Small nucleolar RNA R160: a 73-nucleotide RNA sequence from Camphora micrantha. It scores 63 bits against the family's covariance model. By type it is a C/D-box small nucleolar RNA. The family has 9 seed sequences and 799 matches in Rfam 15.1. About the family: snoR160 is a C/D box small nucleolar RNA, which acts as a methylation guide for 25S ribosomal RNA in plants. snoR160 has been alternatively named snoZ270 in rice. A reference for the family is Chen et al. (2003), "The high diversity of snoRNAs in plants: identification and comparative study of 120 snoRNA genes from Oryza sativa", Nucleic Acids Res.
RNA sequence: AGCAAAAUGAUGAGCUUAUGCAUCUGAAUUUGAUGUGGAAACAUAUAAUGGUCUUCAAAGUUCUCUGAUAGCU
Numbered sequence: 001a002g003c004a005a006a007a008u009g010a011u012g013a014g015c016u017u018a019u020g021c022a023u024c025u026g027a028a029u030u031u032g033a034u035g036u037g038g039a040a041a042c043a044u045a046u047a048a049u050g051g052u053c054u055u056c057a058a059a060g061u062u063c064u065c066u067g068a069u070a071g072c073u
Stems, first nucleotide, its partner, number of pairs: 001073003005069001